[Rfam]
The record is a 356-nucleotide RNA from Shewanella amazonensis, which matches "transfer-messenger RNA" in Rfam. Pairs were carried over by alignment from the consensus structure, which is taken from published work. Rfam describes the family as follows. Bacterial tmRNA, also known as 10Sa RNA or SsrA, is named for its dual tRNA and mRNA-like properties. Lineage of the source: Bacteria > Pseudomonadati > Alteromonadales > Shewanella > Shewanella amazonensis. It is one of the family's seed sequences.
Nucleotides: 356
Stems, first nucleotide, its partner, number of pairs: 001352007021325005028318001035312003039308003044300005049067005055078006112133005117127001134175005141166004147161001149160001152191004156186002194223003207238005241276006248269003252265003256292007329345005
Number, partner (000 for none) and nucleotide at each position: 001352g002351g003350g004349g005348g006347c007346g008000a009000u010000u011000c012000u013000g014000g015000a016000u017000u018000c019000g020000a021325c022324g023323g024322g025321a026000u027000u028318c029000g030000c031000g032000a033000a034000a035312c036311u037310c038000c039308g040307g041306g042000a043000g044300c045299a046298u047297g048296c049067c050066g051065a052064g053063g054000g055078g056077c057076g058075g059074u060073u061000g062000g063053c064052c065051u066050c067049g068000u069000a070000a071000a072000a073060a074059g075058c076057c077056g078055c079000a080000a081000a082000g083000u084000u085000a086000u087000a088000g089000u090000u091000g092000c093000a094000a095000a096000c097000g098000a099000c100000g101000a102000u103000a104000a105000c106000u107000a108000c109000g110000c111000u112133c113132u114131g115130g116129c117127u118000g119000c120000u121000u122000a123000a124000u125000u126000a127117g128000c129116g130115c131114c132113a133112g134175c135174c136173a137172u138171c139000u140000a141166c142165c143164a144163c145000a146000g147161g148000u149160c150000u151000c152191g153190c154189a155188c156186a157185u158000g159000g160149g161147c162000a163144g164143u165142g166141g167000a168000u169000u170000u171138g172137a173136u174135g175134g176000u177000c178000a179000c180000c181000u182000u183000a184000c185157a186156u187000c188155g189154u190153g191152c192000u193000a194223g195222c196221g197000a198000g199000g200000g201000a202000a203000c204000c205000u206000u207238g208237u209236c210235u211234g212000g213000g214000g215000g216000u217000g218000a219000a220000c221196c222195g223194c224000g225000a226000a227000a228000c229000a230000g231000u232000u233000c234211c235210a236209g237208g238207c239000u240000c241276a242275c243274c244273g245272u246271u247000a248269g249268a250267a251000a252265u253264c254263c255000u256292g257291u258290c259289u260288u261287u262286c263254g264253g265252a266000g267250u268249u269248c270000g271246a272245g273244c274243g275242g276241u277000u278000a279000a280000a281000u282000a283000a284000a285000a286262g287261a288260g289259a290258g291257a292256c293000u294000a295000a296048g297047c298046a299045u300044g301000u302000a303000g304000c305000g306041c307040c308039u309000u310037g311036a312035g313000c314000g315000u316000a317000g318028g319000u320000u321025u322024u323023u324022c325021g326000g327000a328000c329345g330344c331343g332342g333341g334000u335000u336000c337000a338000a339000g340000u341333c342332c343331c344330g345329c346007c347006g348005c349004c350003u351002c352001c353000a354000c355000c356000a